RNA: Plastid-psbA-3 3UTR RNA
RNA sequence: AAAGGAGCAAUAACCAAAUUCUUGUUCUAUCAAGAGUAUUUAUUAUUGCUCCUUUACU
Numbered sequence: 001a002a003a004g005g006a007g008c009a010a011u012a013a014c015c016a017a018a019u020u021c022u023u024g025u026u027c028u029a030u031c032a033a034g035a036g037u038a039u040u041u042a043u044u045a046u047u048g049c050u051c052c053u054u055u056a057c058u
Stems, first nucleotide, its partner, number of pairs: 001055013019036006